Description: Shown here is a 127-nucleotide RNA from Cognatilysobacter bugurensis, a member of the family "SAH (S-adenosyl-L-homocysteine) riboswitch aptamer". The family's consensus secondary structure is taken from published work. Rfam links the family to the GO terms regulation of gene expression and S-adenosylhomocysteine metabolic process.
RNA sequence: UUCACCGAGGGGCGCUGCGACCGCUGCACCGUGCGGAUUCUUCCGCCAAGCCCGCACAUUCGUGUGCGGACUUUAAGGCAACGGCCAGGCUCGGCGAAAUCUCUUCUGUAAACGGCGCCCGAUGUCC
Numbered sequence: 001u002u003c004a005c006c007g008a009g010g011g012g013c014g015c016u017g018c019g020a021c022c023g024c025u026g027c028a029c030c031g032u033g034c035g036g037a038u039u040c041u042u043c044c045g046c047c048a049a050g051c052c053c054g055c056a057c058a059u060u061c062g063u064g065u066g067c068g069g070a071c072u073u074u075a076a077g078g079c080a081a082c083g084g085c086c087a088g089g090c091u092c093g094g095c096g097a098a099a100u101c102u103c104u105u106c107u108g109u110a111a112a113c114g115g116c117g118c119c120c121g122a123u124g125u126c127c
Base pairs, nucleotide, nucleotide: 002097003096005094006093007092008091021084022083023082025080026079